The record is a 44-nucleotide RNA from Channa argus, which matches "S4-Flavobacteria ribosomal protein leader" in Rfam.
[Rfam]
RNA sequence: GAAUAACGAAGGAUAAAAAUCAUCAGUUUCUUUAAUUCUUAUUC
Numbered sequence: 001g002a003a004u005a006a007c008g009a010a011g012g013a014u015a016a017a018a019a020u021c022a023u024c025a026g027u028u029u030c031u032u033u034a035a036u037u038c039u040u041a042u043u044c
Stems, first nucleotide, its partner, number of pairs: 001044006008038001009033004
It scores 37 bits against the family's covariance model.